The family of this 74-nucleotide sequence from Marivibrio halodurans is "Makes More Granules Regulator RNA (mmgR)".
Clan: suhB sRNA clan.
The family has 87 seed sequences and 1,791 matches in Rfam 15.1.
On this family, see Torres-Quesada et al., RNA Biol 2014: "Genome-wide profiling of Hfq-binding RNAs uncovers extensive post-transcriptional rewiring of major stress response and symbiotic regulons in Sinorhizobium meliloti".
It scores 56 bits against the family's covariance model.
[Rfam]
RNA sequence: CAUACGCGCUUCUUUUGGGCGUUUCCUCCCUAAACUUGGGCCGCGCUUCGGCGCGGCCCUUUUUUUCGCGAUAU
Numbered sequence: 001c002a003u004a005c006g007c008g009c010u011u012c013u014u015u016u017g018g019g020c021g022u023u024u025c026c027u028c029c030c031u032a033a034a035c036u037u038g039g040g041c042c043g044c045g046c047u048u049c050g051g052c053g054c055g056g057c058c059c060u061u062u063u064u065u066u067c068g069c070g071a072u073a074u
Stems, first nucleotide, its partner, number of pairs: 008020004038059009